[Rfam]
RNA: Bacteroidales-1 6S-Bacteroidales RNA suggested
Organism: Microbacter margulisiae
RNA sequence: AGUCGUUUCGGAAACUGGAAAACUCAACAGAAAUUUAGACCUGAGAAAAGUUUUGAUAUUCAAUGGCGGGCUGCACCUUCGGGUUGUCGGGAGACACGGCAGAUUACAACGAAUACCGACACUCAAACCCUAUUUAAUAGGAGUUUUCUCUCAAUUUACCGAAACGGCUUUUUUC
Numbered sequence: 001a002g003u004c005g006u007u008u009c010g011g012a013a014a015c016u017g018g019a020a021a022a023c024u025c026a027a028c029a030g031a032a033a034u035u036u037a038g039a040c041c042u043g044a045g046a047a048a049a050g051u052u053u054u055g056a057u058a059u060u061c062a063a064u065g066g067c068g069g070g071c072u073g074c075a076c077c078u079u080c081g082g083g084u085u086g087u088c089g090g091g092a093g094a095c096a097c098g099g100c101a102g103a104u105u106a107c108a109a110c111g112a113a114u115a116c117c118g119a120c121a122c123u124c125a126a127a128c129c130c131u132a133u134u135u136a137a138u139a140g141g142a143g144u145u146u147u148c149u150c151u152c153a154a155u156u157u158a159c160c161g162a163a164a165c166g167g168c169u170u171u172u173u174u175c
Base pairs, nucleotide, nucleotide: 050120051119052118055116057115058114059113060112061111064108065107071102072101073100074099075084076083077082086095087094088093